[Rfam]
RNA sequence: UUCUUAUCCAGAGAGGUGGAGGGACUGGCCCGGCGAAGCCUCAGCAACAGACAGACUUAUUGUACUGUGCUAAUUCCAGGAGCUUUUGCUGAAGAUAAGAA
Numbered sequence: 001u002u003c004u005u006a007u008c009c010a011g012a013g014a015g016g017u018g019g020a021g022g023g024a025c026u027g028g029c030c031c032g033g034c035g036a037a038g039c040c041u042c043a044g045c046a047a048c049a050g051a052c053a054g055a056c057u058u059a060u061u062g063u064a065c066u067g068u069g070c071u072a073a074u075u076c077c078a079g080g081a082g083c084u085u086u087u088g089c090u091g092a093a094g095a096u097a098a099g100a101a
Stems, first nucleotide, its partner, number of pairs: 001101008013042005021031003025079004043071004048067002051063003075093001081090003
Description:
Shown here is a 101-nucleotide RNA sequence from Gracilibacillus ureilyticus, a member of the family "SAM riboswitch aptamer (S box leader)". About the family: The SAM riboswitch is found upstream of a number of genes which code for proteins involved in methionine or cysteine biosynthesis in Gram-positive bacteria.